[Rfam]
Rfam assigns this 600-nucleotide part of an RNA from Pontibacter cellulosilyticus to the family "Bacterial large subunit ribosomal RNA". The match comes from Rfam's covariance-model search (2762 bits). The family has 102 seed sequences and 51,934 matches in Rfam 15.1. Pairs were carried over by alignment from the consensus structure, which is taken from published work.

RNA sequence: UAGUCUCGGUGAAGAUGCCGAGUACCCGCAACGGGACGGAAAGACCCCAUGAACCUUUACUAUAGCUUAGCAUUGACUCUGGGUAACUCAUGUGUAGGAUAGGUGGGAGGAAGCGAAGCGGCGUCGCCAGGCGUCGUGGAUCCGUCCUUGAAAUACCACCCUUGAGUUGCUUGGAGCCUAACCUUCUUCGAGGGGGGACAGUGCUUGGUGGGUAGUUUGACUGGGGUGGUCGCCUCCAAAACAAUAACGGAGGCUUUCAAAGGUGCCCUCAGCACGCUUGGUAACCGUGCGCAGAGCGCAAUAGCAUAAGGGCGCUUGACUGUGAGGCCCACAAGCCGAGCAGGGUCGAAAGACGGAUAUAGUGAUCCGGUGGUUCCGCAUGGAAGGGCCAUCGCUCAAAGGAUAAAAGGUACUCUGGGGAUAACAGGCUGAUCUCCCCCAAGAGCUCAUAUCGACGGGGAGGUUUGGCACCUCGAUGUCGGCUCGUCACGUCCUGGGGCUGGAGAAGGUCCCAAGGGUUCGGCUGUUCGCCGAUUAAAGUGGCACGCGAGCUGGGUUCAGAACGUCGUGAGACAGUUCGGUCCCUAUCUGUUGCGGGCG
Numbered sequence: 001u002a003g004u005c006u007c008g009g010u011g012a013a014g015a016u017g018c019c020g021a022g023u024a025c026c027c028g029c030a031a032c033g034g035g036a037c038g039g040a041a042a043g044a045c046c047c048c049a050u051g052a053a054c055c056u057u058u059a060c061u062a063u064a065g066c067u068u069a070g071c072a073u074u075g076a077c078u079c080u081g082g083g084u085a086a087c088u089c090a091u092g093u094g095u096a097g098g099a100u101a102g103g104u105g106g107g108a109g110g111a112a113g114c115g116a117a118g119c120g121g122c123g124u125c126g127c128c129a130g131g132c133g134u135c136g137u138g139g140a141u142c143c144g145u146c147c148u149u150g151a152a153a154u155a156c157c158a159c160c161c162u163u164g165a166g167u168u169g170c171u172u173g174g175a176g177c178c179u180a181a182c183c184u185u186c187u188u189c190g191a192g193g194g195g196g197g198a199c200a201g202u203g204c205u206u207g208g209u210g211g212g213u214a215g216u217u218u219g220a221c222u223g224g225g226g227u228g229g230u231c232g233c234c235u236c237c238a239a240a241a242c243a244a245u246a247a248c249g250g251a252g253g254c255u256u257u258c259a260a261a262g263g264u265g266c267c268c269u270c271a272g273c274a275c276g277c278u279u280g281g282u283a284a285c286c287g288u289g290c291g292c293a294g295a296g297c298g299c300a301a302u303a304g305c306a307u308a309a310g311g312g313c314g315c316u317u318g319a320c321u322g323u324g325a326g327g328c329c330c331a332c333a334a335g336c337c338g339a340g341c342a343g344g345g346u347c348g349a350a351a352g353a354c355g356g357a358u359a360u361a362g363u364g365a366u367c368c369g370g371u372g373g374u375u376c377c378g379c380a381u382g383g384a385a386g387g388g389c390c391a392u393c394g395c396u397c398a399a400a401g402g403a404u405a406a407a408a409g410g411u412a413c414u415c416u417g418g419g420g421a422u423a424a425c426a427g428g429c430u431g432a433u434c435u436c437c438c439c440c441a442a443g444a445g446c447u448c449a450u451a452u453c454g455a456c457g458g459g460g461a462g463g464u465u466u467g468g469c470a471c472c473u474c475g476a477u478g479u480c481g482g483c484u485c486g487u488c489a490c491g492u493c494c495u496g497g498g499g500c501u502g503g504a505g506a507a508g509g510u511c512c513c514a515a516g517g518g519u520u521c522g523g524c525u526g527u528u529c530g531c532c533g534a535u536u537a538a539a540g541u542g543g544c545a546c547g548c549g550a551g552c553u554g555g556g557u558u559c560a561g562a563a564c565g566u567c568g569u570g571a572g573a574c575a576g577u578u579c580g581g582u583c584c585c586u587a588u589c590u591g592u593u594g595c596g597g598g599c600g
Stems, first nucleotide, its partner, number of pairs: 005022005025598008034590003038585002046419004051415002053411005059216004066208002069205004075178001077176014092161001102160005109143003118137008182196003186193002219231004232254006255400001257357002263315006269295002272290005296305002320343004326337003345354003368394007376387002428469003432466001433463007443453002480555001481553004485547001486544005493518002496513006520534005561579004565574003